[Rfam]
RNA sequence: CCCUCCGAAGUUUCCCUCGGGAUAGGCUGGAGCUCGGUGCGAGUUCUAUCGGGUAAAGCCAAUGAUUAGAGGCAUCGGGCGCAACGCCCUCGACCUAUUCUCAAACUUUAAAUAGGUAGGGCCCGGCGCGGCUGCUUCGUUGAGCCGUGCCACGGAAUCGAGAGCUCCAAGUGGGCCAUUUUUGGUAAGCGGAGCUGGCGAUGCGGGAUGAAGCCGGAAGCCGGGUUACGGUGCCCAAGCUGCGCGCUAACCUAGAACCCACAAAGGGUGUUGGUCGAUUAAGACAGCGGGGACGGUGGUCAUGGAAGUCGAAAUCCGCUAAGGAGUGUGUAACAACUCACCUGCCCGAAUCAACUAGCCCCAGAAAAUGGAUGGCGCUGAGCGCGCGACCUAUACCCGGCCGUCGGGGGCAAGCGCCGAGCCCCGAUGAGUAGGAGGGCGCGGCGGUCGUCUGCAAAACCCGGGCGCGAGCCCGGGCGGAGCGGCCGUCGGUGCGGAU
Numbered sequence: 001c002c003c004u005c006c007g008a009a010g011u012u013u014c015c016c017u018c019g020g021g022a023u024a025g026g027c028u029g030g031a032g033c034u035c036g037g038u039g040c041g042a043g044u045u046c047u048a049u050c051g052g053g054u055a056a057a058g059c060c061a062a063u064g065a066u067u068a069g070a071g072g073c074a075u076c077g078g079g080c081g082c083a084a085c086g087c088c089c090u091c092g093a094c095c096u097a098u099u100c101u102c103a104a105a106c107u108u109u110a111a112a113u114a115g116g117u118a119g120g121g122c123c124c125g126g127c128g129c130g131g132c133u134g135c136u137u138c139g140u141u142g143a144g145c146c147g148u149g150c151c152a153c154g155g156a157a158u159c160g161a162g163a164g165c166u167c168c169a170a171g172u173g174g175g176c177c178a179u180u181u182u183u184g185g186u187a188a189g190c191g192g193a194g195c196u197g198g199c200g201a202u203g204c205g206g207g208a209u210g211a212a213g214c215c216g217g218a219a220g221c222c223g224g225g226u227u228a229c230g231g232u233g234c235c236c237a238a239g240c241u242g243c244g245c246g247c248u249a250a251c252c253u254a255g256a257a258c259c260c261a262c263a264a265a266g267g268g269u270g271u272u273g274g275u276c277g278a279u280u281a282a283g284a285c286a287g288c289g290g291g292g293a294c295g296g297u298g299g300u301c302a303u304g305g306a307a308g309u310c311g312a313a314a315u316c317c318g319c320u321a322a323g324g325a326g327u328g329u330g331u332a333a334c335a336a337c338u339c340a341c342c343u344g345c346c347c348g349a350a351u352c353a354a355c356u357a358g359c360c361c362c363a364g365a366a367a368a369u370g371g372a373u374g375g376c377g378c379u380g381a382g383c384g385c386g387c388g389a390c391c392u393a394u395a396c397c398c399g400g401c402c403g404u405c406g407g408g409g410g411c412a413a414g415c416g417c418c419g420a421g422c423c424c425c426g427a428u429g430a431g432u433a434g435g436a437g438g439g440c441g442c443g444g445c446g447g448u449c450g451u452c453u454g455c456a457a458a459a460c461c462c463g464g465g466c467g468c469g470a471g472c473c474c475g476g477g478c479g480g481a482g483c484g485g486c487c488g489u490c491g492g493u494g495c496g497g498a499u
Stems, first nucleotide, its partner, number of pairs: 001439006011024001013022003028169007044121007056109001057107002063103003068098001070096003075093005080086001125151009175199004180194005204216003220401005226395001230391003240388001242387001245384003266362003270359006277352003287345005294318003300312002319323001324339001328337002402429006409423003440494001442491010464473003